[Rfam]
RNA sequence: UUUCUGCGGUGAUGAAUUAUGAAAAGUUUAUUUCACAUGUCAGACUUCAGAGAUUUGUGAAUCGAUGAGAAGAAAAUUCAUAUGUUCUGAGCAGAAU
Number, nucleotide and partner (000 for none) at each position: 001u000002u096003u095004c094005u093006g092007c091008g000009g000010u000011g000012a000013u000014g000015a000016a000017u000018u000019a000020u000021g000022a000023a000024a000025a000026g000027u000028u000029u000030a000031u000032u000033u000034c000035a000036c000037a000038u000039g000040u000041c000042a000043g000044a000045c000046u000047u000048c000049a000050g000051a000052g063053a062054u061055u060056u000057g000058u000059g000060a055061a054062u053063c052064g000065a000066u000067g000068a000069g000070a000071a000072g000073a000074a000075a000076a000077u000078u000079c000080a000081u000082a000083u000084g000085u000086u000087c000088u000089g000090a000091g007092c006093a005094g004095a003096a002097u000

This 97-nucleotide RNA from Camphora micrantha belongs to the Rfam family "Small nucleolar RNA R64/Z200 family". Rfam 15.1 lists 748 matches to the family in 228 species. The match comes from Rfam's covariance-model search (89 bits). Gene Ontology terms of the family: nucleolus and RNA processing.